[Rfam]
RNA: Small nucleolar RNA SNORD46
Organism: Denticeps clupeoides
RNA sequence: CAUGUGGGUGAUGUAAACUAGUCCUUAGGUUGGCCCUGUUUGGCCGUUUUGGUCAAAGCUCCAGGCCUUCCGAUGUUAGGAUCUGUCAUAGUUACACUGACACGUU
Numbered sequence: 001c002a003u004g005u006g007g008g009u010g011a012u013g014u015a016a017a018c019u020a021g022u023c024c025u026u027a028g029g030u031u032g033g034c035c036c037u038g039u040u041u042g043g044c045c046g047u048u049u050u051g052g053u054c055a056a057a058g059c060u061c062c063a064g065g066c067c068u069u070c071c072g073a074u075g076u077u078a079g080g081a082u083c084u085g086u087c088a089u090a091g092u093u094a095c096a097c098u099g100a101c102a103c104g105u106u
Stems, first nucleotide, its partner, number of pairs: 002105005